[Rfam]
RNA sequence: UAAGUAAGUCAGACGAUCGCGGGUAGCAAUAGCUACGUGAGGAAAGUCGGAGCUCCAUAGAGCAAGGGUGCUAGGUAACGCCUAGUGGGAGUGAUCCUAAGGAAAGUGCAACAGAAAAUAACCGCCAGCGUAAGUUGGUAAGGAUGAAAAGGUGAGGUAAGAGCUCACCGUUGGCUAGGUGACUAGCCAAGCCGUGUAAACCCCACCCGGAGCAAGUCCAAGUUAGGGUUAAUAGGGUGCUGCUCGUACCCUCCGGUAGGUAGGACGCUUGAGCCUAUUGGUGACAAUAGGCCUAGAAAGAUGAUCGUUUAAUACAGAACUCCGCUUAUAGAUUUGCUUAAUAA
Numbered sequence: 001u002a003a004g005u006a007a008g009u010c011a012g013a014c015g016a017u018c019g020c021g022g023g024u025a026g027c028a029a030u031a032g033c034u035a036c037g038u039g040a041g042g043a044a045a046g047u048c049g050g051a052g053c054u055c056c057a058u059a060g061a062g063c064a065a066g067g068g069u070g071c072u073a074g075g076u077a078a079c080g081c082c083u084a085g086u087g088g089g090a091g092u093g094a095u096c097c098u099a100a101g102g103a104a105a106g107u108g109c110a111a112c113a114g115a116a117a118a119u120a121a122c123c124g125c126c127a128g129c130g131u132a133a134g135u136u137g138g139u140a141a142g143g144a145u146g147a148a149a150a151g152g153u154g155a156g157g158u159a160a161g162a163g164c165u166c167a168c169c170g171u172u173g174g175c176u177a178g179g180u181g182a183c184u185a186g187c188c189a190a191g192c193c194g195u196g197u198a199a200a201c202c203c204c205a206c207c208c209g210g211a212g213c214a215a216g217u218c219c220a221a222g223u224u225a226g227g228g229u230u231a232a233u234a235g236g237g238u239g240c241u242g243c244u245c246g247u248a249c250c251c252u253c254c255g256g257u258a259g260g261u262a263g264g265a266c267g268c269u270u271g272a273g274c275c276u277a278u279u280g281g282u283g284a285c286a287a288u289a290g291g292c293c294u295a296g297a298a299a300g301a302u303g304a305u306c307g308u309u310u311a312a313u314a315c316a317g318a319a320c321u322c323c324g325c326u327u328a329u330a331g332a333u334u335u336g337c338u339u340a341a342u343a344a
Stems, first nucleotide, its partner, number of pairs: 001340010011329001012309007020039002023036005044327003048324005053212004062244001066208005071085005086100001087098004101203002106201002108197003122143002124139006151169006170192001171190008216266004228254001236250005273292008
RNA: Bacterial RNase P class A